[Rfam]
Record summary
A member of the RNA family "U7 small nuclear RNA" from Cebus imitator, 65 nucleotides long. The family's consensus secondary structure was predicted with PFOLD.
RNA sequence: CAAUGCUACAGCUCUUUUCGAAUGUGUCUGGCAGGUUUUCUUGUUUUCACUGGAAGCUUUCCCCA
Numbered sequence: 001c002a003a004u005g006c007u008a009c010a011g012c013u014c015u016u017u018u019c020g021a022a023u024g025u026g027u028c029u030g031g032c033a034g035g036u037u038u039u040c041u042u043g044u045u046u047u048c049a050c051u052g053g054a055a056g057c058u059u060u061c062c063c064c065a
Base pairs, nucleotide, nucleotide: 034062035061037056038055039054040053041052043050044049